Rfam assigns this 103-nucleotide RNA from Isoalcanivorax pacificus to the family "Guanidine-I riboswitch aptamer". The family has 100 seed sequences and 1,509 matches in Rfam 15.1. The pairing is the family consensus, mapped onto this sequence.
RNA sequence: CAUCAGGGUGACUAGGGUUCCGGCUGCCGACGCAGUGACUGGUCCGAGAGUCACCGGCCUCUCCUCCAGAGGGGUUACACGGCGGGAUAAAAGCCCGGGAGAC
Numbered sequence: 001c002a003u004c005a006g007g008g009u010g011a012c013u014a015g016g017g018u019u020c021c022g023g024c025u026g027c028c029g030a031c032g033c034a035g036u037g038a039c040u041g042g043u044c045c046g047a048g049a050g051u052c053a054c055c056g057g058c059c060u061c062u063c064c065u066c067c068a069g070a071g072g073g074g075u076u077a078c079a080c081g082g083c084g085g086g087a088u089a090a091a092a093g094c095c096c097g098g099g100a101g102a103c
Base pairs, nucleotide, nucleotide: 007055008054009053010052011051012050015045016044020042021041022039023036024035025034026033027032056076057075058074059073060072061071062070063069078098080101084096085095086094